[Rfam]
RNA sequence: CACGUCCGGCGGGCGGACGCCCCCGACCCUUCCCGGCGGACGCGGAUACCCUGUGCGGGUGCGUCCCGACGGGACGCAAAGCCGACAGCCGUCGCAUCCCGGGAGACCAUUCAUG
Numbered sequence: 001c002a003c004g005u006c007c008g009g010c011g012g013g014c015g016g017a018c019g020c021c022c023c024c025g026a027c028c029c030u031u032c033c034c035g036g037c038g039g040a041c042g043c044g045g046a047u048a049c050c051c052u053g054u055g056c057g058g059g060u061g062c063g064u065c066c067c068g069a070c071g072g073g074a075c076g077c078a079a080a081g082c083c084g085a086c087a088g089c090c091g092u093c094g095c096a097u098c099c100c101g102g103g104a105g106a107c108c109a110u111u112c113a114u115g
Stems, first nucleotide, its partner, number of pairs: 060078004065073003081095002084093003
The record is a 115-nucleotide RNA from Streptomyces alkaliphilus, which matches "Streptomyces-metH RNA" in Rfam.
Rfam classes the family as a small RNA.
The match comes from Rfam's covariance-model search (80 bits).
The base pairs follow the family's consensus structure, which is taken from published work.